[Rfam]
RNA sequence: UGUAUUCUACAGUGCAUGUGUCUCCAGUCAUAUAGAGGCACUGGGGAUACAGCUCUGUUGGAAUAAC
Numbered sequence: 001u002g003u004a005u006u007c008u009a010c011a012g013u014g015c016a017u018g019u020g021u022c023u024c025c026a027g028u029c030a031u032a033u034a035g036a037g038g039c040a041c042u043g044g045g046g047a048u049a050c051a052g053c054u055c056u057g058u059u060g061g062a063a064u065a066a067c
Stems, first nucleotide, its partner, number of pairs: 005063004009058004014053002017051012
The family of this 67-nucleotide RNA sequence from Xenopus tropicalis is "mir-139 microRNA precursor family". It is one of the family's seed sequences. Its family is annotated with RISC complex and miRNA-mediated post-transcriptional gene silencing in the Gene Ontology.